[Rfam]
RNA: RNase E 5' UTR element
RNA sequence: UUUCCGUGUUGAAUCUUGUUAGAGCAAGAAAGUUUGCGGAAUACCCAUUUUGCCUGAACGUCCAUCCACGCAGCAAUGGCGUAAGACGUAUUGUACUUUCAGGCAGUUAGCGGGCUGCGGGUUGCAGCCUGACCGGUAAUAUGGAAUCAACUCUUAAGAAAUAUUCUAAGGUUAUUCCCACGAUAAUUGCGCUGUAUUUCCGUAUGAAAUACAGGCAACCGACACUUUGCGCCUCUCAGCAAACGACAACCGUGAGGUUGGCGACACGCGUUUAGUCACGAGGCCAUCGGUUCACUCCCGGUUAGCGUCACCAUGCCCGCAGCUCUGUCGCCAA
Numbered sequence: 001u002u003u004c005c006g007u008g009u010u011g012a013a014u015c016u017u018g019u020u021a022g023a024g025c026a027a028g029a030a031a032g033u034u035u036g037c038g039g040a041a042u043a044c045c046c047a048u049u050u051u052g053c054c055u056g057a058a059c060g061u062c063c064a065u066c067c068a069c070g071c072a073g074c075a076a077u078g079g080c081g082u083a084a085g086a087c088g089u090a091u092u093g094u095a096c097u098u099u100c101a102g103g104c105a106g107u108u109a110g111c112g113g114g115c116u117g118c119g120g121g122u123u124g125c126a127g128c129c130u131g132a133c134c135g136g137u138a139a140u141a142u143g144g145a146a147u148c149a150a151c152u153c154u155u156a157a158g159a160a161a162u163a164u165u166c167u168a169a170g171g172u173u174a175u176u177c178c179c180a181c182g183a184u185a186a187u188u189g190c191g192c193u194g195u196a197u198u199u200c201c202g203u204a205u206g207a208a209a210u211a212c213a214g215g216c217a218a219c220c221g222a223c224a225c226u227u228u229g230c231g232c233c234u235c236u237c238a239g240c241a242a243a244c245g246a247c248a249a250c251c252g253u254g255a256g257g258u259u260g261g262c263g264a265c266a267c268g269c270g271u272u273u274a275g276u277c278a279c280g281a282g283g284c285c286a287u288c289g290g291u292u293c294a295c296u297c298c299c300g301g302u303u304a305g306c307g308u309c310a311c312c313a314u315g316c317c318c319g320c321a322g323c324u325c326u327g328u329c330g331c332c333a334a
Stems, first nucleotide, its partner, number of pairs: 003040006014029005050106008061095001063093002068089003073080002112325011130304007143178005152171005188217003192214004197209004218291005231284005244263002247260005